RNA sequence: UUAAGUCAAAUUUGUAUGGAGUUGGAACGUUUGCCUAUGUUUGCCGCUAGGGGCACUGUUCCAGCUGCAUACAAAUUUCAGGUA
Numbered sequence: 001u002u003a004a005g006u007c008a009a010a011u012u013u014g015u016a017u018g019g020a021g022u023u024g025g026a027a028c029g030u031u032u033g034c035c036u037a038u039g040u041u042u043g044c045c046g047c048u049a050g051g052g053g054c055a056c057u058g059u060u061c062c063a064g065c066u067g068c069a070u071a072c073a074a075a076u077u078u079c080a081g082g083u084a
Stems, first nucleotide, its partner, number of pairs: 008078009018068001020066010034052003039047002
RNA: mir-2807 microRNA precursor family
Organism: Bombyx mori